[Rfam]
RNA sequence: UUUAACAAAGACGAUGGGGCUCGUCUAAAAUGCACAUUUGUGCUAAUGACUCCUAUGAUUUA
Numbered sequence: 001u002u003u004a005a006c007a008a009a010g011a012c013g014a015u016g017g018g019g020c021u022c023g024u025c026u027a028a029a030a031u032g033c034a035c036a037u038u039u040g041u042g043c044u045a046a047u048g049a050c051u052c053c054u055a056u057g058a059u060u061u062a
Stems, first nucleotide, its partner, number of pairs: 010025004016053004021048001032043004

The record is a 62-nucleotide RNA sequence from Clostridium luticellarii, which matches "Fluoride riboswitch aptamer (crcB RNA motif)" in Rfam. Its family is annotated with response to fluoride and positive regulation of gene expression in the Gene Ontology. NCBI's taxonomy places the organism under Bacteria, Bacillati, Bacillota, Eubacteriales, Clostridium. Pairs were carried over by alignment from the consensus structure, which is taken from published work.